[Rfam]
RNA: Purine riboswitch aptamer
RNA sequence: CGCCGCCGAACAUCAUAAUCUCGUAUAAUGCCGGGAAUAGGGCCCGGAAGUUUCUACCCGAGAACCGUAAAUUUUCGGACUACGAGCGAAUACGUGAUGAAG
Numbered sequence: 001c002g003c004c005g006c007c008g009a010a011c012a013u014c015a016u017a018a019u020c021u022c023g024u025a026u027a028a029u030g031c032c033g034g035g036a037a038u039a040g041g042g043c044c045c046g047g048a049a050g051u052u053u054c055u056a057c058c059c060g061a062g063a064a065c066c067g068u069a070a071a072u073u074u075u076c077g078g079a080c081u082a083c084g085a086g087c088g089a090a091u092a093c094g095u096g097a098u099g100a101a102g
Stems, first nucleotide, its partner, number of pairs: 020086006029049001031047005058078007